Mahella-1 RNA: a 112-nucleotide RNA from Mahella australiensis. NCBI's taxonomy places the organism under Bacteria, Bacillati, Clostridia, Mahella, Mahella australiensis. It is annotated as a small RNA. The family's consensus secondary structure is taken from published work.
[Rfam]
RNA sequence: CCCGAGCUGUCCAACGCCGCAACCUAAUGCGGGUCCACUCUGUGGGUGGCAGCAAAUAACACCAUGCGAGGAGCAGGGGUGUUAUGUUAAUGCCGGACAUUCUGCCGGCAAA
Number, nucleotide and partner (000 for none) at each position: 001c000002c000003c000004g000005a000006g000007c000008u000009g000010u000011c000012c000013a000014a000015c000016g000017c000018c000019g000020c000021a000022a000023c000024c000025u000026a000027a000028u000029g000030c000031g000032g000033g047034u046035c045036c044037a043038c042039u000040c000041u000042g038043u037044g036045g035046g034047u033048g000049g000050c000051a000052g000053c000054a000055a000056a085057u084058a083059a082060c081061a080062c079063c078064a000065u075066g074067c073068g000069a000070g000071g000072a000073g067074c066075a065076g000077g000078g063079g062080u061081g060082u059083u058084a057085u056086g000087u000088u000089a000090a000091u000092g109093c108094c107095g106096g105097a000098c000099a000100u000101u000102c000103u000104g000105c096106c095107g094108g093109c092110a000111a000112a000